RNA sequence: CUGAGGGCCGGGUAACCGGUCCUGAUCGCAUGGGAGAAGUCAGCAGAAGGCAUAGUAGCCGGUGGAAACGAGCCCCGCAAAGC
Number, nucleotide and partner (000 for none) at each position: 001c000002u000003g000004a023005g022006g021007g020008c019009c018010g017011g016012g000013u000014a000015a000016c011017c010018g009019g008020u007021c006022c005023u004024g000025a000026u000027c000028g000029c000030a000031u000032g000033g000034g000035a000036g000037a000038a000039g000040u047041c046042a000043g000044c000045a000046g041047a040048a000049g000050g083051c082052a000053u000054a000055g000056u000057a000058g078059c077060c000061g075062g074063u000064g000065g000066a000067a000068a000069c000070g000071a000072g000073c000074c062075c061076c000077g059078c058079a000080a000081a000082g051083c050

Shown here is an 83-nucleotide sequence from Desulfobacter latus, a member of the family "Group II catalytic intron D1-D4-1".
The pairing is the family consensus, mapped onto this sequence.
The literature on the family includes a 2001 paper in Trends Genet by Bonen and Vogel, "The ins and outs of group II introns".
It scores 40 bits against the family's covariance model.
Rfam's curators write: Group II introns are found in rRNA, tRNA and mRNA of organelles in fungi, plants and protists, and also in mRNA in bacteria.